[Rfam]
RNA sequence: GUACGCCAACGGCACACCCGCGCGAAAGCCGGGGUCGCAAAGCUACGGGUCCUCCGGCAUUCCCCCUGCCGCGGACAGCCGGGUUCCCGAU
Numbered sequence: 001g002u003a004c005g006c007c008a009a010c011g012g013c014a015c016a017c018c019c020g021c022g023c024g025a026a027a028g029c030c031g032g033g034g035u036c037g038c039a040a041a042g043c044u045a046c047g048g049g050u051c052c053u054c055c056g057g058c059a060u061u062c063c064c065c066c067u068g069c070c071g072c073g074g075a076c077a078g079c080c081g082g083g084u085u086c087c088c089g090a091u
Stems, first nucleotide, its partner, number of pairs: 012038002017033004022029002041085004046081003049076003056070004